[Rfam]
RNA sequence: UGUCUCCUCCAUGUCUCCUCCUGAUAUGGAUUCAGCCCGCUCCACGUCGAGCGGGCUUUUUUUU
Numbered sequence: 001u002g003u004c005u006c007c008u009c010c011a012u013g014u015c016u017c018c019u020c021c022u023g024a025u026a027u028g029g030a031u032u033c034a035g036c037c038c039g040c041u042c043c044a045c046g047u048c049g050a051g052c053g054g055g056c057u058u059u060u061u062u063u064u
Stems, first nucleotide, its partner, number of pairs: 008030008034057008
This 64-nucleotide sequence from Paraburkholderia phymatum belongs to the Rfam family "Betaproteobacteria toxic small RNA".
A reference for the family is Sass et al. (2017), "Identification of small RNAs abundant in Burkholderia cenocepacia biofilms reveal putative regulators with a potential role in carbon and iron metabolism", Sci Rep.
Rfam's curators put it in the seed alignment.
From the family's description: Overexpression in amino aid rich medium attenuates growth, suggesting role in repressing amino acid intake and metabolism.
The organism belongs to Paraburkholderia phymatum, within Bacteria.